Rfam assigns this 88-nucleotide RNA from Branchiostoma floridae to the family "mir-2060 microRNA precursor family". NCBI's taxonomy places the organism under Eukaryota, Opisthokonta, Deuterostomia, Leptocardii, Branchiostoma. Gene Ontology terms of the family: miRNA-mediated post-transcriptional gene silencing and RISC complex.

[Rfam]
RNA sequence: CUGUGUGUGGAUGGUGUUCAGCACCAGGGACAGGUGUGUUUGGUUGUGUGUGGAUGGUGUUCAGCACCAGGGACAGGUGUGUUUAUCU
Numbered sequence: 001c002u003g004u005g006u007g008u009g010g011a012u013g014g015u016g017u018u019c020a021g022c023a024c025c026a027g028g029g030a031c032a033g034g035u036g037u038g039u040u041u042g043g044u045u046g047u048g049u050g051u052g053g054a055u056g057g058u059g060u061u062c063a064g065c066a067c068c069a070g071g072g073a074c075a076g077g078u079g080u081g082u083u084u085a086u087c088u
Stems, first nucleotide, its partner, number of pairs: 001076004012069007020061007028049001030047004035042002
Dot-bracket structure: ((((.......(((((((.(((((((.(.((((.((....)).)))).).....))))))).)))))))...))))............